This 87-nucleotide RNA from Fusarium longipes belongs to the Rfam family "tRNA". By type it is a transfer RNA. A search with the family's covariance model found it, with a score of 58 bits. Rfam's curators write: Transfer RNA (tRNA) molecules are approximately 80 nucleotides in length.
[Rfam]
RNA sequence: GGUCCUAUAGUUUAGUGGUAAUGACGUCGGAUUUUGAUAUCCAUCAGAAGCCUUCCGAAGACCCCGGUUCGAACCCGGGUAGGACCU
Numbered sequence: 001g002g003u004c005c006u007a008u009a010g011u012u013u014a015g016u017g018g019u020a021a022u023g024a025c026g027u028c029g030g031a032u033u034u035u036g037a038u039a040u041c042c043a044u045c046a047g048a049a050g051c052c053u054u055c056c057g058a059a060g061a062c063c064c065c066g067g068u069u070c071g072a073a074c075c076c077g078g079g080u081a082g083g084a085c086c087u
Stems, first nucleotide, its partner, number of pairs: 001086007010025003027058005063079005